Shown here is an 82-nucleotide RNA sequence from Paenibacillus lemnae, a member of the family "ZMP/ZTP riboswitch aptamer (pfl RNA motif)". A reference for the family is Jones and Ferre-D'Amare (2015), "Recognition of the bacterial alarmone ZMP through long-distance association of two RNA subdomains", Nat Struct Mol Biol. It scores 58 bits against the family's covariance model.

RNA sequence: AUGCUGUGGUGUGACUGGCGUAGCAUGGGGAACCAUGGUGGAGCACCGGAGCAGGAAUCGGCCGUACGCCUGGGCAGAGGUA
Dot-bracket structure: ..(((.((((((..(.[[[[[...((((....))))...)..)))))).)))......(.(((..]]]]]..))).).....